[Rfam]
RNA sequence: AAAUCCCUGCCAAACCGAAGUCUGACGUUAUGCGUCAGAUACUAAUGUAGGUGCGGUGGGGGUUU
Numbered sequence: 001a002a003a004u005c006c007c008u009g010c011c012a013a014a015c016c017g018a019a020g021u022c023u024g025a026c027g028u029u030a031u032g033c034g035u036c037a038g039a040u041a042c043u044a045a046u047g048u049a050g051g052u053g054c055g056g057u058g059g060g061g062g063u064u065u
Stems, first nucleotide, its partner, number of pairs: 001065011014052003020040009
Dot-bracket structure: (((((((((((..(((...(((((((((...))))))))).........)))..)))))))))))

Rfam assigns this 65-nucleotide RNA to the family "DUF3800-VIII RNA".
It is annotated as a small RNA.
Pairs were carried over by alignment from the consensus structure, which is taken from published work.
Bacteroidetes, Cyanobacteria, Firmicutes, Planctomycetes (1 example), Proteobacteria, Tenericutes (1 example).